Source information: The family of this 53-nucleotide RNA from Pseudomonas agarici is "Guanidine-II riboswitch aptamer (mini-ykkC)". A search with the family's covariance model found it, with a score of 36 bits.
RNA sequence: ACGUGGGGACGACCCUGCGGCUCGAUCAAGUUGUCAAUCCGGGGACGACCCCA
Numbered sequence: 001a002c003g004u005g006g007g008g009a010c011g012a013c014c015c016u017g018c019g020g021c022u023c024g025a026u027c028a029a030g031u032u033g034u035c036a037a038u039c040c041g042g043g044g045a046c047g048a049c050c051c052c053a
Stems, first nucleotide, its partner, number of pairs: 002019007041052004